[Rfam]
RNA sequence: GGGAGCAGAUGGGCGCUGGUGUGUCCCUCGGUCUUCAAAACCGAUGCGGGUGGUUAUAACUGCCCGGGUGGGUUCGAUUCCCACAUGCUUCC
Number, nucleotide and partner (000 for none) at each position: 001g092002g091003g090004a089005g088006c087007a086008g084009a000010u000011g026012g025013g024014c023015g022016c021017u000018g000019g000020u000021g016022u015023g014024u013025c012026c011027c000028u044029c043030g042031g041032u040033c000034u000035u000036c000037a000038a000039a000040a032041c031042c030043g029044a028045u000046g000047c066048g065049g064050g063051u062052g000053g000054u000055u000056a000057u000058a000059a000060c000061u000062g051063c050064c049065c048066g047067g000068g000069u083070g082071g081072g080073u000074u000075c000076g000077a000078u000079u000080c072081c071082c070083a069084c008085a000086u007087g006088c005089u004090u003091c002092c001